[Rfam]
RNA sequence: GGCACAUAACUAGGGGCCAUAGUGGAAGUGUUCACAUUGUGACCCCCGUCAGGUAAUACCUGCAAAUUCUGCU
Numbered sequence: 001g002g003c004a005c006a007u008a009a010c011u012a013g014g015g016g017c018c019a020u021a022g023u024g025g026a027a028g029u030g031u032u033c034a035c036a037u038u039g040u041g042a043c044c045c046c047c048g049u050c051a052g053g054u055a056a057u058a059c060c061u062g063c064a065a066a067u068u069c070u071g072c073u
Stems, first nucleotide, its partner, number of pairs: 013046004018041001021073007028040003050062005